[Rfam]
RNA sequence: UGCCGGCCAGCGGGAGAGAGUCCAACCGGAAUUCCGGAAGGGCCGCCGAAGGGGAAAUCGCCCGAAAUCUCUCAGGCAAAAGAACCGUCGGCCGGUU
Numbered sequence: 001u002g003c004c005g006g007c008c009a010g011c012g013g014g015a016g017a018g019a020g021u022c023c024a025a026c027c028g029g030a031a032u033u034c035c036g037g038a039a040g041g042g043c044c045g046c047c048g049a050a051g052g053g054g055a056a057a058u059c060g061c062c063c064g065a066a067a068u069c070u071c072u073c074a075g076g077c078a079a080a081a082g083a084a085c086c087g088u089c090g091g092c093c094g095g096u097u
Base pairs, nucleotide, nucleotide: 006092007091008090010088011087012086013085020043021042022041023040045077046076047075048073049072052071053070054069058065059064
Description: This 97-nucleotide sequence from Nitratireductor indicus belongs to the Rfam family "Glycine riboswitch aptamer".